[Rfam]
RNA sequence: AUAUGACAAGGUGAUGGCGUUCCACCUUUCCCAACCGCUCCGUUCCGGAGCUGAUGACGCCUGAUGCGAC
Number, nucleotide and partner (000 for none) at each position: 001a000002u000003a000004u000005g000006a000007c000008a000009a000010g026011g025012u024013g023014a000015u000016g061017g060018c059019g058020u057021u056022c000023c013024a012025c011026c010027u000028u000029u000030c000031c000032c000033a000034a000035c000036c000037g051038c050039u049040c048041c000042g000043u000044u000045c000046c000047g000048g040049a039050g038051c037052u000053g000054a000055u000056g021057a020058c019059g018060c017061c016062u000063g000064a000065u000066g000067c000068g000069a000070c000
This 70-nucleotide sequence from Erwinia billingiae belongs to the Rfam family "Fluoride riboswitch aptamer (crcB RNA motif)".
The family's consensus secondary structure is taken from published work.
The literature on the family includes a 2012 paper in Nature by Ren et al., "Fluoride ion encapsulation by Mg2+ ions and phosphates in a fluoride riboswitch".
Rfam links the family to the GO terms positive regulation of gene expression and response to fluoride.
The organism belongs to Erwinia billingiae, within Bacteria.